[Rfam]
Nucleotides: 180
Base pairs, nucleotide, nucleotide: 006175007174008173009172010171011170016079017078018077019076021074023072030064031063032062033061034060035059036058037057083114084113085112087110088109089108090107092105093104094103115142116141117140118139119138120137121136125134126133144165145164146163147162148161149160
Number, partner (000 for none) and nucleotide at each position: 001000g002000c003000a004000c005000a006175c007174a008173g009172a010171a011170g012000a013000g014000g015000u016079g017078c018077g019076a020000a021074a022000c023072u024000a025000a026000g027000g028000u029000a030064a031063u032062g033061c034060a035059g036058c037057u038000a039000a040000g041000g042000a043000g044000c045000u046000a047000a048000u049000u050000c051000c052000g053000a054000a055000g056000a057037g058036g059035c060034u061033g062032c063031a064030u065000g066000a067000g068000g069000g070000a071000a072023g073000u074021u075000g076019u077018c078017g079016c080000c081000g082000a083114g084113g085112u086000u087110a088109c089108u090107u091000a092105g093104a094103u095000g096000a097000u098000u099000a100000g101000c102000u103094g104093u105092c106000a107090a108089g109088g110087u111000u112085a113084c114083c115142g116141g117140u118139c119138g120137u121136u122000a123000u124000g125134g126133g127000u128000u129000g130000a131000a132000g133126c134125c135000u136121a137120a138119c139118g140117a141116c142115u143000g144165u145164c146163a147162c148161u149160u150000u151000a152000u153000u154000a155000g156000u157000a158000u159000u160149a161148a162147g163146u164145g165144g166000a167000g168000a169000g170011c171010u172009u173008c174007u175006g176000g177000a178000a179000a180000u
Rfam assigns this 180-nucleotide RNA sequence from Paraferrimonas haliotis to the family "Lysine riboswitch aptamer".
Lineage of the source: Bacteria > Gammaproteobacteria > Alteromonadales > Ferrimonadaceae > Paraferrimonas.
Rfam describes the family as follows. Riboswitches are metabolite binding domains within certain messenger RNAs that serve as precision sensors for their corresponding targets.